[Rfam]
RNA: drz-agam-2-2 ribozyme
RNA sequence: CACUGGCUUGAUUAUGUUAAUGGGGUAGGAUCCGAGACUCCUUUCGGGGUUACACAGGCUCUUCACCCAACUCCUAUUCCGUCACGUCCUCUUCGUACAGAGUGGUAACUUUCUCCAACACAUAUCCAAGCUUGGGUACACGGGCCUGUCCCAACCCCUUGGACGGAUGGUGGAGCAAGGCUAAACAGGAGGGG
Numbered sequence: 001c002a003c004u005g006g007c008u009u010g011a012u013u014a015u016g017u018u019a020a021u022g023g024g025g026u027a028g029g030a031u032c033c034g035a036g037a038c039u040c041c042u043u044u045c046g047g048g049g050u051u052a053c054a055c056a057g058g059c060u061c062u063u064c065a066c067c068c069a070a071c072u073c074c075u076a077u078u079c080c081g082u083c084a085c086g087u088c089c090u091c092u093u094c095g096u097a098c099a100g101a102g103u104g105g106u107a108a109c110u111u112u113c114u115c116c117a118a119c120a121c122a123u124a125u126c127c128a129a130g131c132u133u134g135g136g137u138a139c140a141c142g143g144g145c146c147u148g149u150c151c152c153a154a155c156c157c158c159u160u161g162g163a164c165g166g167a168u169g170g171u172g173g174a175g176c177a178a179g180g181c182u183a184a185a186c187a188g189g190a191g192g193g194g
Stems, first nucleotide, its partner, number of pairs: 011103003015099003023068004028064003032058002072194004077190002080188001084096003088105002109179003113175004119169001124168004132154005157162001